The record is a 47-nucleotide sequence from Haloactinopolyspora alba, which matches "Guanidine-II riboswitch aptamer (mini-ykkC)" in Rfam. The source organism's lineage runs through Bacteria, Actinomycetota, Actinomycetes, Jiangellales and Haloactinopolyspora. A search with the family's covariance model found it, with a score of 36 bits.
RNA sequence: CGCCGAGGACGACCUCGACGUGGUCGGUGAGGCCGGCGACGGCGCCG
Dot-bracket structure: ((.(((((....))))).)).............(((((....)))))